[Rfam]
RNA sequence: GGCCGAAAGGCCCACACAUAGCGGGGCGCAAAGCCCUCGCACAGCUAAACGGAAGACAGAAA
Numbered sequence: 001g002g003c004c005g006a007a008a009g010g011c012c013c014a015c016a017c018a019u020a021g022c023g024g025g026g027c028g029c030a031a032a033g034c035c036c037u038c039g040c041a042c043a044g045c046u047a048a049a050c051g052g053a054a055g056a057c058a059g060a061a062a
Stems, first nucleotide, its partner, number of pairs: 001012004022039005028034002
The family of this 62-nucleotide sequence from Actibacterium mucosum is "L2-Alphaproteobacteria ribosomal protein leader". Rfam's curators put it in the seed alignment. The literature on the family includes a 2020 paper in BMC Microbiol by Eckert and Weinberg, "Discovery of 20 novel ribosomal leader candidates in bacteria and archaea".